[Rfam]
RNA sequence: CAUGGGUUUAUGUUAUAUUCCAUCUCUUGCACACUGGACUCCAGUGCUGCUGCCGGCUGGUGUGCAGGGGGUGGAAUACAUCAUUGAAUCAUG
Numbered sequence: 001c002a003u004g005g006g007u008u009u010a011u012g013u014u015a016u017a018u019u020c021c022a023u024c025u026c027u028u029g030c031a032c033a034c035u036g037g038a039c040u041c042c043a044g045u046g047c048u049g050c051u052g053c054c055g056g057c058u059g060g061u062g063u064g065c066a067g068g069g070g071g072u073g074g075a076a077u078a079c080a081u082c083a084u085u086g087a088a089u090c091a092u093g
Stems, first nucleotide, its partner, number of pairs: 001093005007087002010084003014080001016078022039055001
The family of this 93-nucleotide RNA sequence from Theobroma umbraticum is "MIR2950 microRNA precursor family". Rfam 15.1 lists 60 matches to the family in 34 species. Its family is annotated with RISC complex and miRNA-mediated post-transcriptional gene silencing in the Gene Ontology. The organism belongs to Theobroma, within Eukaryota.